[Rfam]
The family of this 169-nucleotide RNA from Aegilops tauschii is "MIR2118 microRNA precursor family".
A reference for the family is Xue et al. (2009), "Characterization and expression profiles of miRNAs in rice seeds", Nucleic Acids Res.
The organism belongs to Aegilops tauschii, within Eukaryota.
RNA sequence: CUGGGGAAGAGGAAGAAAGGGAGCAUGUAAGAUCAGUGGGAAUAGGAACAUUGAGGGAAUCCUAUAGCUCAAUUUGCCUUCCUAUAUUGGAGGUAACAAUCUGCUUUGUGUUUCCCUAGUGCCUCAUAUUCCCAUCGUUAUUAGGUACUACCUCCUCUUCCUUUUGUCU
Numbered sequence: 001c002u003g004g005g006g007a008a009g010a011g012g013a014a015g016a017a018a019g020g021g022a023g024c025a026u027g028u029a030a031g032a033u034c035a036g037u038g039g040g041a042a043u044a045g046g047a048a049c050a051u052u053g054a055g056g057g058a059a060u061c062c063u064a065u066a067g068c069u070c071a072a073u074u075u076g077c078c079u080u081c082c083u084a085u086a087u088u089g090g091a092g093g094u095a096a097c098a099a100u101c102u103g104c105u106u107u108g109u110g111u112u113u114c115c116c117u118a119g120u121g122c123c124u125c126a127u128a129u130u131c132c133c134a135u136c137g138u139u140a141u142u143a144g145g146u147a148c149u150a151c152c153u154c155c156u157c158u159u160c161c162u163u164u165u166g167u168c169u
Base pairs, nucleotide, nucleotide: 009160010159011158012157013156015154016153022149023148026145028143029142030141032139034137037134038133039132040131041130042129043128044127046125047124049121050120051119053117055116056115057114058113059112061110
Record summary: Rfam links the family to the GO terms RISC complex and miRNA-mediated post-transcriptional gene silencing.